[Rfam]
Rfam assigns this 96-nucleotide sequence from Staphylococcus aureus to the family "SAM riboswitch aptamer (S box leader)". Rfam's curators put it in the seed alignment. Pairs were carried over by alignment from the consensus structure, which is taken from published work. NCBI's taxonomy places the organism under Bacteria, Bacillota, Staphylococcaceae, Staphylococcus, Staphylococcus aureus.
RNA sequence: CACUUAUCUAGAGAGGUGGAGGGACUGGCCCUAUGAAGCCUCGGCAACAUCUCGAAUGUGCCAAUUCCAGUAACCGUAAUGGUUUGAAGAUAAGCA
Numbered sequence: 001c002a003c004u005u006a007u008c009u010a011g012a013g014a015g016g017u018g019g020a021g022g023g024a025c026u027g028g029c030c031c032u033a034u035g036a037a038g039c040c041u042c043g044g045c046a047a048c049a050u051c052u053c054g055a056a057u058g059u060g061c062c063a064a065u066u067c068c069a070g071u072a073a074c075c076g077u078a079a080u081g082g083u084u085u086g087a088a089g090a091u092a093a094g095c096a
Stems, first nucleotide, its partner, number of pairs: 003094006013042005021031003025070004043062004048058002066088001072084004